This 274-nucleotide RNA sequence from Anisodus acutangulus belongs to the Rfam family "Plant signal recognition particle RNA". Lineage of the source: Eukaryota > Magnoliopsida > Mesangiospermae > Solanaceae > Anisodus. The literature on the family includes a 2001 paper in J Mol Biol by Batey et al., "Structural and energetic analysis of RNA recognition by a universally conserved protein from the signal recognition particle". Its Rfam clan is "SRP clan". The family's RNA type in Rfam is non-coding RNA gene.
RNA sequence: GCCGAACGCUGUAAUGUGGGCUUGUAACCUCAAUGAGGGCAUCAAUGUGGUGGAAUGUUGGGCUGUCUUAUCGGGCAGGGCUUGGUGGGCUAGUUUCUGGCCUGCCCUAUCUAAGCGUAGAGUUGGGUCACGUGGCCCAUGUGUGAAAGCAUGGGUUGCUUGGCUCUUGAUGUGGGCUGGGAUUCACAGGGUCCUGCUCUGUGCAGUGGAAGGAUAAUGGGCCAUUGUUCACCAAGUCCAACAAAUGACUGGAUGGGCUUGGCCCAGCAUAUCG
Numbered sequence: 001g002c003c004g005a006a007c008g009c010u011g012u013a014a015u016g017u018g019g020g021c022u023u024g025u026a027a028c029c030u031c032a033a034u035g036a037g038g039g040c041a042u043c044a045a046u047g048u049g050g051u052g053g054a055a056u057g058u059u060g061g062g063c064u065g066u067c068u069u070a071u072c073g074g075g076c077a078g079g080g081c082u083u084g085g086u087g088g089g090c091u092a093g094u095u096u097c098u099g100g101c102c103u104g105c106c107c108u109a110u111c112u113a114a115g116c117g118u119a120g121a122g123u124u125g126g127g128u129c130a131c132g133u134g135g136c137c138c139a140u141g142u143g144u145g146a147a148a149g150c151a152u153g154g155g156u157u158g159c160u161u162g163g164c165u166c167u168u169g170a171u172g173u174g175g176g177c178u179g180g181g182a183u184u185c186a187c188a189g190g191g192u193c194c195u196g197c198u199c200u201g202u203g204c205a206g207u208g209g210a211a212g213g214a215u216a217a218u219g220g221g222c223c224a225u226u227g228u229u230c231a232c233c234a235a236g237u238c239c240a241a242c243a244a245a246u247g248a249c250u251g252g253a254u255g256g257g258c259u260u261g262g263c264c265c266a267g268c269a270u271a272u273c274g
Stems, first nucleotide, its partner, number of pairs: 001040003004023002007020001009018001029037003051274003055270003058266001060264001065258002068256005073250002076247002078239008087230003091227002098224007106213002110210004115204009125166006132159008142151003167172001174194004178188002